Rfam assigns this 76-nucleotide RNA sequence from Plutella xylostella to the family "mir-9/mir-79 microRNA precursor family". The sequence is in the family's curated seed alignment. The family has 214 seed sequences and 5,647 matches in Rfam 15.1. The organism belongs to Plutella, within Eukaryota.
[Rfam]
RNA sequence: CGGCUCGGCUCUUUGGUAUCCUAGCUGUAGGCGUUUACGAAGCGGCCUAAAGUUAUGGUACCGAAGUCCCGGGCCU
Numbered sequence: 001c002g003g004c005u006c007g008g009c010u011c012u013u014u015g016g017u018a019u020c021c022u023a024g025c026u027g028u029a030g031g032c033g034u035u036u037a038c039g040a041a042g043c044g045g046c047c048u049a050a051a052g053u054u055a056u057g058g059u060a061c062c063g064a065a066g067u068c069c070c071g072g073g074c075c076u
Stems, first nucleotide, its partner, number of pairs: 002075004007070002011066010022055005028049005

Source information: For this family Rfam cites "Identification of novel genes coding for small expressed RNAs" (Lagos-Quintana et al., Science, 2001).